[Rfam]
RNA sequence: AGGGGUUACAAGUAUAGCAGAAGCACUCAGUGUGGCCCUGUCAGAUUCCAACGAAUCUGCAAAUUCUGCU
Numbered sequence: 001a002g003g004g005g006u007u008a009c010a011a012g013u014a015u016a017g018c019a020g021a022a023g024c025a026c027u028c029a030g031u032g033u034g035g036c037c038c039u040g041u042c043a044g045a046u047u048c049c050a051a052c053g054a055a056u057c058u059g060c061a062a063a064u065u066c067u068g069c070u
Stems, first nucleotide, its partner, number of pairs: 012038001016070007023036002042059007
RNA: Mammalian CPEB3 ribozyme